[Rfam]
RNA: Bacterial RNase P class A
Organism: Saprospira grandis
Nucleotides: 375
Base pairs, nucleotide, nucleotide: 001371002370004368005367006366007365008364010362011360012321013320014319016317018315020045021044024041025040050358051357052356054355055354056353057352058351059222060221061220062219066256067255068254069253071218072217073216074215075214076090077089078088079087080086091112092110093109094108095107113213114212118211119210120207121206122205134152135151136148137147138146139145140144160179161178162177163176164175166174181202182201183200184199185198186197187196188195189194226278227277228276229275237268238267239266240265241264248260249259250258251257285304286303287302288301289300290299291298292297
Number, partner (000 for none) and nucleotide at each position: 001371a002370g003000a004368a005367c006366g007365g008364g009000a010362u011360g012321c013320u014319u015000g016317a017000g018315c019000u020045u021044a022000u023000a024041a025040a026000a027000u028000a029000a030000g031000a032000c033000a034000a035000a036000g037000c038000c039000c040025u041024u042000c043000u044021u045020g046000a047000g048000g049000a050358a051357a052356g053000u054355c055354c056353g057352a058351a059222c060221a061220a062219c063000g064000u065000a066256c067255u068254g069253c070000a071218u072217c073216g074215c075214g076090c077089c078088a079087g080086c081000u082000a083000a084000c085000g086080g087079c088078u089077g090076g091112g092110c093109a094108g095107a096000g097000c098000g099000c100000u101000a102000a103000g104000c105000a106000c107095u108094c109093u110092g111000a112091c113213g114212g115000a116000a117000a118211g119210u120207g121206u122205c123000g124000c125000a126000g127000a128000a129000a130000a131000u132000a133000a134152c135151c136148g137147c138146c139145c140144a141000u142000u143000u144140u145139g146138g147137g148136u149000a150000a151135g152134g153000g154000u155000g156000a157000a158000a159000a160179c161178c162177u163176g164175c165000a166174g167000a168000u169000a170000a171000g172000c173000g174166c175164g176163c177162a178161g179160g180000c181202a182201g183200g184199c185198u186197g187196c188195u189194g190000g191000c192000a193000a194189c195188a196187g197186u198185g199184g200183c201182u202181u203000g204000g205122g206121a207120u208000a209000a210119a211118c212114c213113c214075c215074g216073c217072g218071a219062g220061u221060u222059g223000a224000a225000a226278u227277g228276c229275c230000a231000u232000g233000u234000a235000a236000a237268c238267c239266a240265g241264c242000g243000c244000c245000c246000g247000a248260g249259g250258g251257u252000u253069g254068c255067a256066g257251g258250c259249c260248c261000a262000a263000u264241g265240c266239u267238g268237g269000a270000g271000g272000g273000u274000a275229g276228g277227c278226a279000g280000a281000u282000a283000g284000a285304g286303c287302g288301u289300u290299u291298a292297u293000g294000u295000g296000a297292g298291u299290a300289a301288a302287c303286g304285c305000c306000c307000a308000g309000a310000u311000a312000a313000a314000u315018g316000a317016u318000g319014a320013a321012g322000c323000c324000u325000u326000g327000a328000g329000g330000c331000u332000u333000a334000g335000g336000c337000c338000a339000a340000a341000a342000g343000u344000g345000a346000c347000a348000g349000a350000a351058u352057u353056c354055g355054g356052c357051u358050u359000a360011u361000c362010g363000g364008u365007c366006u367005g368004u369000g370002u371001u372000u373000u374000u375000u